A member of the RNA family "HDV ribozyme from F. prausnitzii" from Rodentolepis nana, 71 nucleotides long. On this family, see Webb et al., Science 2009: "Widespread occurrence of self-cleaving ribozymes".
RNA sequence: GGGGUGCGCAAUAGACUUACCUCCACGUGGUGCACCCUGGGCAACGUAUACUUAUGCGGCAAAGUCUAUUA
Numbered sequence: 001g002g003g004g005u006g007c008g009c010a011a012u013a014g015a016c017u018u019a020c021c022u023c024c025a026c027g028u029g030g031u032g033c034a035c036c037c038u039g040g041g042c043a044a045c046g047u048a049u050a051c052u053u054a055u056g057c058g059g060c061a062a063a064g065u066c067u068a069u070u071a
Base pairs, nucleotide, nucleotide: 001038002037003036004035005034006033007032019031020030021029045058046057047056048055049054

Rfam links the family to the GO term catalytic activity. Pairs were carried over by alignment from the consensus structure, which is taken from published work.